A member of the RNA family "SAH (S-adenosyl-L-homocysteine) riboswitch aptamer" from Solihabitans fulvus, 82 nucleotides long. Rfam 15.1 lists 1,354 matches to the family in 1,132 species. Pairs were carried over by alignment from the consensus structure, which is taken from published work. The match comes from Rfam's covariance-model search (39 bits). Lineage of the source: Bacteria > Actinomycetota > Pseudonocardiales > Pseudonocardiaceae > Solihabitans.

RNA sequence: AGGGCCGAGAGGCGCUGCGACGGACCCUCACCGGUCCGCCACGCUCGGCUCGCGACGACCAACGCAAGGGCGCCUCCUUACC
Numbered sequence: 001a002g003g004g005c006c007g008a009g010a011g012g013c014g015c016u017g018c019g020a021c022g023g024a025c026c027c028u029c030a031c032c033g034g035u036c037c038g039c040c041a042c043g044c045u046c047g048g049c050u051c052g053c054g055a056c057g058a059c060c061a062a063c064g065c066a067a068g069g070g071c072g073c074c075u076c077c078u079u080a081c082c
Base pairs, nucleotide, nucleotide: 002051003050004049005048006047007046008045021038022037023036024035025034026033